[Rfam]
Shown here is an 83-nucleotide RNA from Methylophaga thalassica, a member of the family "c-di-GMP-I riboswitch aptamer".
The source organism's lineage runs through Bacteria, Pseudomonadati, Pseudomonadota, Piscirickettsiaceae and Methylophaga thalassica.
The match comes from Rfam's covariance-model search (55 bits).

RNA sequence: UUUUUUUAAAGCCAAACUCGUCGUGAGGCGGGGUCGGAAAGCCACGGGUCUCUGGUUUGAUUAGAGAUGGCUGGGUUGCAUUG
Numbered sequence: 001u002u003u004u005u006u007u008a009a010a011g012c013c014a015a016a017c018u019c020g021u022c023g024u025g026a027g028g029c030g031g032g033g034u035c036g037g038a039a040a041g042c043c044a045c046g047g048g049u050c051u052c053u054g055g056u057u058u059g060a061u062u063a064g065a066g067a068u069g070g071c072u073g074g075g076u077u078g079c080a081u082u083g
Base pairs, nucleotide, nucleotide: 012037013036017032018031019030020029021028022027040077041076042075043074045073046072047071048068049067050066051065052064053063054062055061056060